[Rfam]
RNA sequence: ACGUUGCGAUGAUGUGAGAGGUUGCUGACACACCCGGCCCCUUUGCCAUAGGGAUGGAGAGUCAGGAGAUUUUCACGGAGUAUGUCCGAUACUAAAUUGGGCGA
Dot-bracket structure: .............(((.((((...(((((...............................)))))....)))))))......((((((((.....)))))))).
Numbered sequence: 001a002c003g004u005u006g007c008g009a010u011g012a013u014g015u016g017a018g019a020g021g022u023u024g025c026u027g028a029c030a031c032a033c034c035c036g037g038c039c040c041c042u043u044u045g046c047c048a049u050a051g052g053g054a055u056g057g058a059g060a061g062u063c064a065g066g067a068g069a070u071u072u073u074c075a076c077g078g079a080g081u082a083u084g085u086c087c088g089a090u091a092c093u094a095a096a097u098u099g100g101g102c103g104a
Stems, first nucleotide, its partner, number of pairs: 014076003018073004025065005083103008